A member of the RNA family "MIR8008 microRNA precursor family" from Solanum tuberosum, 55 nucleotides long.
RNA sequence: AAACCCAUAAAAGCGACGGACAGAGUAGUUUAGUCCGUCGCUUUUCUGGGUUUUU
Numbered sequence: 001a002a003a004c005c006c007a008u009a010a011a012a013g014c015g016a017c018g019g020a021c022a023g024a025g026u027a028g029u030u031u032a033g034u035c036c037g038u039c040g041c042u043u044u045u046c047u048g049g050g051u052u053u054u055u
Stems, first nucleotide, its partner, number of pairs: 001053007009045013
Its family is annotated with miRNA-mediated post-transcriptional gene silencing and RISC complex in the Gene Ontology.